The record is a 99-nucleotide RNA sequence from Ameiurus melas, which matches "mir-214 microRNA precursor family" in Rfam.
RNA sequence: UGGCUGGUUGCCGUCUGUCUGCCUGUCUGUGCCUGCUGUACAGGCUCGCUGAUGUUCUGCACAGCAAGUGUAGACAGGCAGACACACCACAACUCCGCU
Numbered sequence: 001u002g003g004c005u006g007g008u009u010g011c012c013g014u015c016u017g018u019c020u021g022c023c024u025g026u027c028u029g030u031g032c033c034u035g036c037u038g039u040a041c042a043g044g045c046u047c048g049c050u051g052a053u054g055u056u057c058u059g060c061a062c063a064g065c066a067a068g069u070g071u072a073g074a075c076a077g078g079c080a081g082a083c084a085c086a087c088c089a090c091a092a093c094u095c096c097g098c099u
Stems, first nucleotide, its partner, number of pairs: 016084002020080009032068001034066006041059003